[Rfam]
RNA sequence: AGCCCAAUGAGGAAUUAAUGGCCUCUUGAUAGGAAGUGCCGUAUGACACUUAUAACACCAGUUGUGCCCACGUAGUCCUCUCCUAUUUCUUUUCUCUUGAUGUUACCCUCCUCGAAUCCUUUUAUAGGCUUGUGUUUUGAGGGUUCUCCAAAAGGAAGAACUAUGGAGUUCAGAGGACUUGUGGUUCAGCUGUGUGUGUGUGAUUUUAAAUGGGUCACUGAGGGCU
Numbered sequence: 001a002g003c004c005c006a007a008u009g010a011g012g013a014a015u016u017a018a019u020g021g022c023c024u025c026u027u028g029a030u031a032g033g034a035a036g037u038g039c040c041g042u043a044u045g046a047c048a049c050u051u052a053u054a055a056c057a058c059c060a061g062u063u064g065u066g067c068c069c070a071c072g073u074a075g076u077c078c079u080c081u082c083c084u085a086u087u088u089c090u091u092u093u094c095u096c097u098u099g100a101u102g103u104u105a106c107c108c109u110c111c112u113c114g115a116a117u118c119c120u121u122u123u124a125u126a127g128g129c130u131u132g133u134g135u136u137u138u139g140a141g142g143g144u145u146c147u148c149c150a151a152a153a154g155g156a157a158g159a160a161c162u163a164u165g166g167a168g169u170u171c172a173g174a175g176g177a178c179u180u181g182u183g184g185u186u187c188a189g190c191u192g193u194g195u196g197u198g199u200g201u202g203a204u205u206u207u208a209a210a211u212g213g214g215u216c217a218c219u220g221a222g223g224g225c226u
Stems, first nucleotide, its partner, number of pairs: 001226005072180001074179007081167003087160004092156004
The record is a 226-nucleotide RNA sequence from Musa troglodytarum, which matches "Small nucleolar RNA Z112" in Rfam. Rfam classes the family as a C/D-box small nucleolar RNA. Pairs were carried over by alignment from the consensus structure, which was predicted with PFOLD. The literature on the family includes a 2002 paper in Nucleic Acids Res by Liang et al., "A novel gene organization: intronic snoRNA gene clusters from Oryza sativa".